[Rfam]
RNA sequence: AAAAUAAGUGCUAUUUUUAAAUAGCCGAUAUAUUUUGCUUUCCGAGUAGCACCCUGAGUCAGGGUGCUUUUUUUUAUUCG
Numbered sequence: 001a002a003a004a005u006a007a008g009u010g011c012u013a014u015u016u017u018u019a020a021a022u023a024g025c026c027g028a029u030a031u032a033u034u035u036u037g038c039u040u041u042c043c044g045a046g047u048a049g050c051a052c053c054c055u056g057a058g059u060c061a062g063g064g065u066g067c068u069u070u071u072u073u074u075u076a077u078u079c080g
Stems, first nucleotide, its partner, number of pairs: 001074004006069003023039003027035001028033001050066006
Rfam assigns this 80-nucleotide RNA sequence from Cricetibacter osteomyelitidis to the family "Aggregatibacter sRNA 20". NCBI's taxonomy places the organism under Bacteria, Pseudomonadati, Pseudomonadota, Gammaproteobacteria, Cricetibacter. It scores 72 bits against the family's covariance model. Rfam describes the family as follows. Validated by RT-PCR and Northern blot. It is annotated as a small RNA. The base pairs follow the family's consensus structure.